[Rfam]
RNA sequence: CGAGAGAAUCAUAGUUAAGGAACUCGGCAAAAUGCCCCCGUAACUUCGGAAGAAGGGGGGCCUCGACCUUGACACCCACGUGCUGGGUGGAGGGGGUAGGGGCCGCAGAGACCAGGGGGAAGCGACUGUUUAUCAAAAACACAGGUCCAUGCGAAGUCGUAAGACGAUGUAUAUGGACUGACUCCUGCCCGGUGCUGGAAGGUUAAGCGGAGCUAUUAGCCCUUGUGGGCGACGUGGUGAAGUUAAGCCCCAGUAAACGGCGGUGGUAACUAUAACCAUCCUAAGGUAGCGAAAUUCCUUGUCGGGUAAGUUCCGACCUGCACGAAUGGAGUAACGACUUCCCCGCUGUCUCAACUGUGAACUCG
Number, nucleotide and partner (000 for none) at each position: 001c365002g364003a363004g362005a000006g000007a000008a000009u360010c359011a358012u357013a356014g355015u354016u353017a000018a351019g350020g349021a000022a000023c000024u000025c000026g000027g000028c000029a000030a000031a000032a000033u000034g000035c059036c058037c057038c056039c055040g000041u000042a000043a000044c049045u000046u000047c000048g000049g044050a000051a000052g000053a000054a000055g039056g038057g037058g036059g035060g103061c102062c101063u100064c099065g000066a000067c000068c000069u000070u000071g000072a000073c089074a088075c087076c086077c085078a084079c000080g000081u000082g000083c000084u078085g077086g076087g075088u074089g073090g000091a000092g000093g000094g000095g000096g000097u000098a000099g064100g063101g062102g061103c060104c108105g000106c000107a000108g104109a000110g000111a000112c000113c000114a000115g000116g344117g343118g342119g341120a340121a339122g338123c336124g335125a000126c000127u141128g140129u139130u000131u000132a000133u000134c000135a000136a000137a000138a000139a129140c128141a127142c000143a000144g179145g178146u177147c176148c175149a174150u173151g172152c169153g000154a000155a000156g165157u164158c163159g000160u000161a000162a000163g158164a157165c156166g000167a000168u000169g152170u000171a000172u151173a150174u149175g148176g147177a146178c145179u144180g000181a000182c331183u330184c329185c328186u000187g261188c260189c259190c000191g000192g258193u257194g254195c253196u252197g251198g250199a000200a000201g249202g248203u247204u000205a000206a000207g243208c242209g000210g000211a000212g238213c237214u236215a235216u234217u000218a000219g230220c229221c228222c227223u000224u000225g000226u000227g222228g221229g220230c219231g000232a000233c000234g216235u215236g214237g213238u212239g000240a000241a000242g208243u207244u000245a000246a000247g203248c202249c201250c198251c197252a196253g195254u194255a000256a000257a193258c192259g189260g188261c187262g280263g279264u278265g277266g276267u275268a000269a000270c000271u000272a000273u000274a000275a267276c266277c265278a264279u263280c262281c285282u000283a000284a000285g281286g000287u000288a000289g000290c000291g318292a000293a000294a000295u000296u000297c000298c000299u000300u000301g317302u316303c315304g314305g313306g312307u000308a000309a000310g000311u000312u306313c305314c304315g303316a302317c301318c291319u000320g000321c000322a000323c000324g000325a000326a000327u000328g185329g184330a183331g182332u000333a000334a000335c124336g123337a000338c122339u121340u120341c119342c118343c117344c116345g000346c000347u000348g000349u020350c019351u018352c000353a016354a015355c014356u013357g012358u011359g010360a009361a000362c004363u003364c002365g001
A member of the RNA family "Bacterial large subunit ribosomal RNA", 365 nucleotides of a longer RNA.
The match comes from Rfam's covariance-model search (2645 bits).